[Rfam]
Shown here is an 82-nucleotide sequence from Echinococcus granulosus, a member of the family "tRNA". The source organism's lineage runs through Eukaryota, Platyhelminthes, Rhabditophora, Cyclophyllidea and Echinococcus.

RNA sequence: GUCGCGAUGGCCGAGUGGUUAAGGCGAUGGACUCGAAAUCCAUUGGGAACUUCCUGCGCAGGUUCGAAUCCUGCUCGCGACG
Numbered sequence: 001g002u003c004g005c006g007a008u009g010g011c012c013g014a015g016u017g018g019u020u021a022a023g024g025c026g027a028u029g030g031a032c033u034c035g036a037a038a039u040c041c042a043u044u045g046g047g048a049a050c051u052u053c054c055u056g057c058g059c060a061g062g063u064u065c066g067a068a069u070c071c072u073g074c075u076c077g078c079g080a081c082g
Stems, first nucleotide, its partner, number of pairs: 001081007010025003027043005058074005